[Rfam]
RNA sequence: AGAUAUGUGAUGAUCGAAUUGUUUCCCUAUUUGUUUGAUUGGCUGCCAUGAUGGCUAAAUCUGCAUUAGCUCUAUCUGAUCAUCU
Numbered sequence: 001a002g003a004u005a006u007g008u009g010a011u012g013a014u015c016g017a018a019u020u021g022u023u024u025c026c027c028u029a030u031u032u033g034u035u036u037g038a039u040u041g042g043c044u045g046c047c048a049u050g051a052u053g054g055c056u057a058a059a060u061c062u063g064c065a066u067u068a069g070c071u072c073u074a075u076c077u078g079a080u081c082a083u084c085u
Stems, first nucleotide, its partner, number of pairs: 002084003041056004